[Rfam]
RNA: S6-S18-Chlorobi ribosomal protein leader
Organism: Pelodictyon luteolum
RNA sequence: UUGCACGCGGUGUUCACGUCUGAACGCGUGAAGCCGUGGGGCCGGUAUGCGCAAUUCCGGACCCUCGCCGCAUGCAA
Numbered sequence: 001u002u003g004c005a006c007g008c009g010g011u012g013u014u015c016a017c018g019u020c021u022g023a024a025c026g027c028g029u030g031a032a033g034c035c036g037u038g039g040g041g042c043c044g045g046u047a048u049g050c051g052c053a054a055u056u057c058c059g060g061a062c063c064c065u066c067g068c069c070g071c072a073u074g075c076a077a
Base pairs, nucleotide, nucleotide: 001077002076003075004074005073007071008070009069010068011067012066013032014031015030016029017028018027019026038065039064040063041062042060043059044058045057